[Rfam]
RNA sequence: AAAGGAGCAAUAACCAAUUUCUUGUUCUAUCAGGAAGGCGUUAUUGUUCCUUUACUUU
Numbered sequence: 001a002a003a004g005g006a007g008c009a010a011u012a013a014c015c016a017a018u019u020u021c022u023u024g025u026u027c028u029a030u031c032a033g034g035a036a037g038g039c040g041u042u043a044u045u046g047u048u049c050c051u052u053u054a055c056u057u058u
Stems, first nucleotide, its partner, number of pairs: 001053014019036006
RNA: Plastid-psbA-3 3UTR RNA
Organism: Camellia japonica